Source information
The family of this 83-nucleotide RNA from Drosophila kikkawai is "mir-980 microRNA precursor family". Rfam 15.1 lists 121 matches to the family in 99 species. Gene Ontology terms of the family: miRNA-mediated post-transcriptional gene silencing and RISC complex.

[Rfam]
RNA sequence: AUUGUAUGUCAGUUUUUCAUUUGGCCUGCCUAGCUGACUUUCAUAAAUAUCGCUAGCUGCCUUGUGAAGGGCUUACGUGUGAU
Numbered sequence: 001a002u003u004g005u006a007u008g009u010c011a012g013u014u015u016u017u018c019a020u021u022u023g024g025c026c027u028g029c030c031u032a033g034c035u036g037a038c039u040u041u042c043a044u045a046a047a048u049a050u051c052g053c054u055a056g057c058u059g060c061c062u063u064g065u066g067a068a069g070g071g072c073u074u075a076c077g078u079g080u081g082a083u
Base pairs, nucleotide, nucleotide: 004080005079006078007077008076009075011073012072013071014070015069017067018066019065020064023061024060030056031055032054033053034052